[Rfam]
RNA sequence: CUUACCGAUACUUGGUCGACAAUUUAAUAGUAUCUGAUUAAUUGAUGGAUAGUAUUAGUUGUGCGACCAGGAAAUGGUAUGA
Numbered sequence: 001c002u003u004a005c006c007g008a009u010a011c012u013u014g015g016u017c018g019a020c021a022a023u024u025u026a027a028u029a030g031u032a033u034c035u036g037a038u039u040a041a042u043u044g045a046u047g048g049a050u051a052g053u054a055u056u057a058g059u060u061g062u063g064c065g066a067c068c069a070g071g072a073a074a075u076g077g078u079a080u081g082a
Stems, first nucleotide, its partner, number of pairs: 001081001003079005009073001011071008019062004024058006031051005

Rfam assigns this 82-nucleotide RNA from Caenorhabditis briggsae to the family "mir-230 microRNA precursor family". The organism belongs to Caenorhabditis, within Eukaryota. Rfam's curators put it in the seed alignment. Rfam links the family to the GO terms miRNA-mediated post-transcriptional gene silencing and RISC complex. Rfam 15.1 lists 5 matches to the family in 5 species.